RNA sequence: CCCCGAUGAGGAAACUAUCCCAAGAGAUAGGAAGUGCCGUAUGACACUUUAAACAGCAGCGGCGGC
Number, nucleotide and partner (000 for none) at each position: 001c000002c000003c000004c000005g000006a000007u000008g000009a000010g000011g000012a000013a000014a000015c059016u000017a000018u000019c000020c000021c000022a000023a000024g000025a000026g000027a000028u000029a000030g000031g050032a049033a048034g047035u046036g045037c000038c000039g000040u000041a000042u000043g000044a000045c036046a035047c034048u033049u032050u031051a000052a000053a000054c000055a000056g000057c000058a000059g015060c000061g000062g000063c000064g000065g000066c000
RNA: Small nucleolar RNA U49